This 153-nucleotide sequence belongs to the Rfam family "sok antitoxin (CssrC)".
From the family's description: Also identified in Shigella as CssrC.
By type it is an antitoxin RNA.
The match comes from Rfam's covariance-model search (91 bits).
RNA sequence: GGGUGCUCUGGAUCUUUCUGUCCGGCGCCUUGGCAAAGGAGAGAAAGAGAAAGGCCCCGAGUCGAUAUUAUCAACCCGAGGCCACUCUGAUGCCUAGCAACAUCAGGUUAGCCUCUUACCCGCCGCAAGGCAAGGAUAGGGAGGUCAAAAAUG
Numbered sequence: 001g002g003g004u005g006c007u008c009u010g011g012a013u014c015u016u017u018c019u020g021u022c023c024g025g026c027g028c029c030u031u032g033g034c035a036a037a038g039g040a041g042a043g044a045a046a047g048a049g050a051a052a053g054g055c056c057c058c059g060a061g062u063c064g065a066u067a068u069u070a071u072c073a074a075c076c077c078g079a080g081g082c083c084a085c086u087c088u089g090a091u092g093c094c095u096a097g098c099a100a101c102a103u104c105a106g107g108u109u110a111g112c113c114u115c116u117u118a119c120c121c122g123c124c125g126c127a128a129g130g131c132a133a134g135g136a137u138a139g140g141g142a143g144g145u146c147a148a149a150a151a152u153g
Base pairs, nucleotide, nucleotide: 001058002057003056005055006054008053009052013048014047015046016045017044018043019042021040022039023038027034028033059077061075062074064069078115079114080113081112082111084109086107087106088105089104090103091102092101120144121143123141124140
Its family is annotated with mRNA binding in the Gene Ontology. For this family Rfam cites "An antisense RNA controls synthesis of an SOS-induced toxin evolved from an antitoxin" (Kawano et al., Mol Microbiol, 2007).